[Rfam]
The record is a 555-nucleotide sequence from Facklamia sp. 252, which matches "ROOL RNA" in Rfam.
The match comes from Rfam's covariance-model search (239 bits).
It is annotated as a small RNA.
About the family: Firmicutes, Fusobacteria (1 example), Tenericutes (1 example).
Taxonomically the source falls in Facklamia (Bacteria, Bacillati, Lactobacillales, Aerococcaceae).
RNA sequence: GUUGAAAACUAAAAAUGAUUUAAACCUAGUGGAGAGCGGUUAGUCACCGUGCUAGGGAGCCAUGGUAAAUAAGUCGGUGGAUGGCUAGUGGGAUACUGCUAGUUUUGAAGCGUGAUUUUACGGUAACGUAAAAGAACUUAAGUAAAAGCUUAACGCAUAAGUGGUUCGUGGAGUCUGAUGAGGAAAAGGUGUAACAUACUAUCGGUUGCGACAAUAGACGGUGCAGAGGCACAAGAAUCUUAGUUAGGUCAGGUGUGAAAAGCUUGAUAAACCUAAGAAAAUUCAAAAUAAGCAAUUCGCUGGCAGAUGAAGAAAUUCAUUGAUGACGAUAGAAGUUAGCACGAGUAGGACAAGGCGAUUUAUUGGAAAGAUGAAUAAUGUUUUGAUAAAUCUGAAUGACCGUCCGAAAGUUGGGUGCGGGGGUGCACGCCUAGUCAGUAAAAGCAAAAGGAAGUCACAAAGUUGCUAGUGUGGUUCAGACCUUUUGGGGCUAUGACUGAAUAUUCCGCAGUUAGAUGUAAGCAGGGAGAAAAACCUAAAUCAUUUUUAGUUUUG
Numbered sequence: 001g002u003u004g005a006a007a008a009c010u011a012a013a014a015a016u017g018a019u020u021u022a023a024a025c026c027u028a029g030u031g032g033a034g035a036g037c038g039g040u041u042a043g044u045c046a047c048c049g050u051g052c053u054a055g056g057g058a059g060c061c062a063u064g065g066u067a068a069a070u071a072a073g074u075c076g077g078u079g080g081a082u083g084g085c086u087a088g089u090g091g092g093a094u095a096c097u098g099c100u101a102g103u104u105u106u107g108a109a110g111c112g113u114g115a116u117u118u119u120a121c122g123g124u125a126a127c128g129u130a131a132a133a134g135a136a137c138u139u140a141a142g143u144a145a146a147a148g149c150u151u152a153a154c155g156c157a158u159a160a161g162u163g164g165u166u167c168g169u170g171g172a173g174u175c176u177g178a179u180g181a182g183g184a185a186a187a188g189g190u191g192u193a194a195c196a197u198a199c200u201a202u203c204g205g206u207u208g209c210g211a212c213a214a215u216a217g218a219c220g221g222u223g224c225a226g227a228g229g230c231a232c233a234a235g236a237a238u239c240u241u242a243g244u245u246a247g248g249u250c251a252g253g254u255g256u257g258a259a260a261a262g263c264u265u266g267a268u269a270a271a272c273c274u275a276a277g278a279a280a281a282u283u284c285a286a287a288a289u290a291a292g293c294a295a296u297u298c299g300c301u302g303g304c305a306g307a308u309g310a311a312g313a314a315a316u317u318c319a320u321u322g323a324u325g326a327c328g329a330u331a332g333a334a335g336u337u338a339g340c341a342c343g344a345g346u347a348g349g350a351c352a353a354g355g356c357g358a359u360u361u362a363u364u365g366g367a368a369a370g371a372u373g374a375a376u377a378a379u380g381u382u383u384u385g386a387u388a389a390a391u392c393u394g395a396a397u398g399a400c401c402g403u404c405c406g407a408a409a410g411u412u413g414g415g416u417g418c419g420g421g422g423g424u425g426c427a428c429g430c431c432u433a434g435u436c437a438g439u440a441a442a443a444g445c446a447a448a449a450g451g452a453a454g455u456c457a458c459a460a461a462g463u464u465g466c467u468a469g470u471g472u473g474g475u476u477c478a479g480a481c482c483u484u485u486u487g488g489g490g491c492u493a494u495g496a497c498u499g500a501a502u503a504u505u506c507c508g509c510a511g512u513u514a515g516a517u518g519u520a521a522g523c524a525g526g527g528a529g530a531a532a533a534a535c536c537u538a539a540a541u542c543a544u545u546u547u548u549a550g551u552u553u554u555g
Stems, first nucleotide, its partner, number of pairs: 007552016025056005036050005059165005075112002078109001084103008113136001116133007139152005175518001178513001183507001185505001188504001189498001192338004197334001199332006205296005221232004238278006248268007256285004297358005307320005342410001348405004391480004414430001416427002432493003435443001445488001447486005454476001456473004525536002